[Rfam]
RNA sequence: CCGUCCAGUCUUCAUCGCAGACGCCCCUCUUCAAGUCAUGAUUUGUGGGAAGCAAUGGCUGGACGUACAGUAAACCUGUCUGUUUAGGAGGGACGCACACAGUAAAGUGCUCUCCCUUAAAGGCUCGACAGGACAUG
Numbered sequence: 001c002c003g004u005c006c007a008g009u010c011u012u013c014a015u016c017g018c019a020g021a022c023g024c025c026c027c028u029c030u031u032c033a034a035g036u037c038a039u040g041a042u043u044u045g046u047g048g049g050a051a052g053c054a055a056u057g058g059c060u061g062g063a064c065g066u067a068c069a070g071u072a073a074a075c076c077u078g079u080c081u082g083u084u085u086a087g088g089a090g091g092g093a094c095g096c097a098c099a100c101a102g103u104a105a106a107g108u109g110c111u112c113u114c115c116c117u118u119a120a121a122g123g124c125u126c127g128a129c130a131g132g133a134c135a136u137g
Stems, first nucleotide, its partner, number of pairs: 002065007010058002026052001028050004075132006082124004088118006095110004
Dot-bracket structure: .(((((((.((..............(.((((...............)))).)....))))))))).........((((((.((((..((((((.((((........))))..))))))..))))..)))))).....

A member of the RNA family "Small Cajal body specific RNA 11" from Aquarana catesbeiana, 137 nucleotides long. The family's RNA type in Rfam is small Cajal body RNA. Rfam's curators write: scaRNAs are a specific class of small nuclear RNAs which localise to the Cajal bodies and guide the modification of RNA polymerase II transcribed spliceosomal RNAs U1, U2, U4, U5 and U12. ACA57 belongs to the H/ACA box class of guide RNAs as it has the predicted hairpin-hinge-hairpin-tail structure, conserved H/ACA-box motifs and is found associated with GAR1. ACA57 is predicted to guide the pseudouridylation of the U5 spliceosomal RNA at position U43. NCBI's taxonomy places the organism under Eukaryota, Eumetazoa, Vertebrata, Amphibia, Aquarana. The literature on the family includes a 2002 paper in EMBO J by Darzacq et al., "Cajal body-specific small nuclear RNAs: a novel class of 2'-O-methylation and pseudouridylation guide RNAs".